Source information: Rfam assigns this 69-nucleotide RNA sequence from Rodentolepis nana to the family "HDV ribozyme from F. prausnitzii". Rfam links the family to the GO term catalytic activity.
Nucleotides: 069
Stems, first nucleotide, its partner, number of pairs: 001035001003033002006030002016028003042055005
Number, partner (000 for none) and nucleotide at each position: 001035g002000a003033g004032g005000c006030g007029c008000g009000c010000a011000u012000a013000a014000a015000c016028a017027c018026c019000u020000c021000c022000a023000c024000g025000u026018g027017g028016u029007g030006c031000a032004c033003c034000c035001u036000g037000g038000g039000c040000a041000a042055c043054g044053u045052a046051u047000a048000u049000u050000c051046a052045u053044a054043c055042g056000g057000c058000a059000a060000a061000a062000a063000a064000g065000u066000c067000u068000a069000u

It scores 46 bits against the family's covariance model. The family's consensus secondary structure is taken from published work.